[Rfam]
RNA sequence: GUGCUGGCUUAGCAGUGUGGAUACUUCGUUGAGUAAUUCAUUGGUAGAAUAUAAAGUUAUGGCCUUUAAGGUUGUGGGUUCGAUUCCCACCUUAACACAGUCCACACGCGCAAUCCAGCAUUUUU
Numbered sequence: 001g002u003g004c005u006g007g008c009u010u011a012g013c014a015g016u017g018u019g020g021a022u023a024c025u026u027c028g029u030u031g032a033g034u035a036a037u038u039c040a041u042u043g044g045u046a047g048a049a050u051a052u053a054a055a056g057u058u059a060u061g062g063c064c065u066u067u068a069a070g071g072u073u074g075u076g077g078g079u080u081c082g083a084u085u086c087c088c089a090c091c092u093u094a095a096c097a098c099a100g101u102c103c104a105c106a107c108g109c110g111c112a113a114u115c116c117a118g119c120a121u122u123u124u125u
Base pairs, nucleotide, nucleotide: 002120003119004118005117006116007115012109013108017105018104019103020102026083027082028081